[Rfam]
RNA: U5 spliceosomal RNA
RNA sequence: AGACUCUGGUUUCUCUUCAGAUCAUAUAAAUUUUUUGCCUUUUACUAAAGAUUUCCGUGGAGAGGAACAACUCUGAGUCUUAACAACGCUGUGGGUGAGAAGCUGGAUACCUAUCA
Numbered sequence: 001a002g003a004c005u006c007u008g009g010u011u012u013c014u015c016u017u018c019a020g021a022u023c024a025u026a027u028a029a030a031u032u033u034u035u036u037g038c039c040u041u042u043u044a045c046u047a048a049a050g051a052u053u054u055c056c057g058u059g060g061a062g063a064g065g066a067a068c069a070a071c072u073c074u075g076a077g078u079c080u081u082a083a084c085a086a087c088g089c090u091g092u093g094g095g096u097g098a099g100a101a102g103c104u105g106g107a108u109a110c111c112u113a114u115c116a
Base pairs, nucleotide, nucleotide: 003078004077005076006075009068010067011066012065013064014063015062016061017060018059019058028054029053030052031051032050033049034048035047097115098114100112102110